[Rfam]
RNA: mir-998 microRNA precursor family
Organism: Anopheles darlingi
RNA sequence: GCAUCAGUCCUGGAGCUGUACUCUCGUGGGUCUACAACGUUUCAAUCGAUACGAUAUCCUGUAGCACCAUGAGAUUCAGCUCUAGUGCUUGGUAU
Number, nucleotide and partner (000 for none) at each position: 001g000002c000003a093004u092005c091006a090007g089008u087009c000010c085011u084012g083013g082014a081015g000016c079017u078018g077019u000020a000021c000022u074023c073024u072025c071026g070027u069028g068029g067030g000031u000032c064033u063034a062035c061036a060037a000038c000039g000040u000041u000042u000043c000044a000045a000046u000047c000048g000049a000050u000051a000052c000053g000054a000055u000056a000057u000058c000059c000060u036061g035062u034063a033064g032065c000066a000067c029068c028069a027070u026071g025072a024073g023074a022075u000076u000077c018078a017079g016080c000081u014082c013083u012084a011085g010086u000087g008088c000089u007090u006091g005092g004093u003094a000095u000